[Rfam]
RNA sequence: ACAUGUACUCUUUUAGCAUUUCUCUAGUAGGUUUUCUCAAGGGGAAAGCCUCC
Numbered sequence: 001a002c003a004u005g006u007a008c009u010c011u012u013u014u015a016g017c018a019u020u021u022c023u024c025u026a027g028u029a030g031g032u033u034u035u036c037u038c039a040a041g042g043g044g045a046a047a048g049c050c051u052c053c
Stems, first nucleotide, its partner, number of pairs: 030050008
A member of the RNA family "U7 small nuclear RNA" from Oncorhynchus kisutch, 53 nucleotides long. Pairs were carried over by alignment from the consensus structure, which was predicted with PFOLD. It scores 39 bits against the family's covariance model. Rfam describes the family as follows. Animal histone pre-mRNAs are spliced by a different mechanism than nuclear pre-mRNAs and self-splicing introns. Lineage of the source: Eukaryota > Metazoa > Deuterostomia > Clupeocephala > Oncorhynchus.